[Rfam]
RNA sequence: UGGGUCGGCAAGACGGUCACGUCAUCCCACGAUCUCCGGAUCAUGGGAUGCCGAGGAACGUCCGGGCUCCACAGAGCGAAGGCGGUGGGUAACGCCCACCCGGGGCAACCCGAGAGCAAGUGCAACAGAAAGCAAACCGCCACGAGCCGUAUGGCUCGGGGUAAGGGUGAAACGGUGGUGUAAGAGACCACCAGAGACCUGAGUGAUCAGGCCUGCUAGGUAAACCUCGCCUGGAGCAAGGUCAAGCAGAGGACGCUGAGGCUGCUCGCCGAGUCCUCGGGUAGACCGCUAGAGAUGUGCGGCAACGUACAUCCGAGAUAGAUGACCGUCCCGUGUGCCCCUGGCACCUGACAGAACCCGGCGUAUGCGCCGGCCCAUUCC
Dot-bracket structure: (((((((((.((((((((.((.((((((................)))))).))....[[[.[[[[[((((.....[...((((((((((.....)))))(((((....)))).)((...((((.............(((((.((((((....)))))).)))..)).......((((((.......)))))).(((.(((((....))))).)).)...))..)))))))))))))...((((.....((((((.....(((...].)))..)))))).....))))......((((((((....))))))))..........)))))))..........................]]]]]]]].)..)))))))))....
Numbered sequence: 001u002g003g004g005u006c007g008g009c010a011a012g013a014c015g016g017u018c019a020c021g022u023c024a025u026c027c028c029a030c031g032a033u034c035u036c037c038g039g040a041u042c043a044u045g046g047g048a049u050g051c052c053g054a055g056g057a058a059c060g061u062c063c064g065g066g067c068u069c070c071a072c073a074g075a076g077c078g079a080a081g082g083c084g085g086u087g088g089g090u091a092a093c094g095c096c097c098a099c100c101c102g103g104g105g106c107a108a109c110c111c112g113a114g115a116g117c118a119a120g121u122g123c124a125a126c127a128g129a130a131a132g133c134a135a136a137c138c139g140c141c142a143c144g145a146g147c148c149g150u151a152u153g154g155c156u157c158g159g160g161g162u163a164a165g166g167g168u169g170a171a172a173c174g175g176u177g178g179u180g181u182a183a184g185a186g187a188c189c190a191c192c193a194g195a196g197a198c199c200u201g202a203g204u205g206a207u208c209a210g211g212c213c214u215g216c217u218a219g220g221u222a223a224a225c226c227u228c229g230c231c232u233g234g235a236g237c238a239a240g241g242u243c244a245a246g247c248a249g250a251g252g253a254c255g256c257u258g259a260g261g262c263u264g265c266u267c268g269c270c271g272a273g274u275c276c277u278c279g280g281g282u283a284g285a286c287c288g289c290u291a292g293a294g295a296u297g298u299g300c301g302g303c304a305a306c307g308u309a310c311a312u313c314c315g316a317g318a319u320a321g322a323u324g325a326c327c328g329u330c331c332c333g334u335g336u337g338c339c340c341c342u343g344g345c346a347c348c349u350g351a352c353a354g355a356a357c358c359c360g361g362c363g364u365a366u367g368c369g370c371c372g373g374c375c376c377a378u379u380c381c
Stems, first nucleotide, its partner, number of pairs: 001377009011366001012330007020053002023050006058364003062361005067236004076266001080232005085099005100114001101112004115227002120225002122221002137166002139162003143158006174192006194216001195214002198211005240287004249278006260270003294313008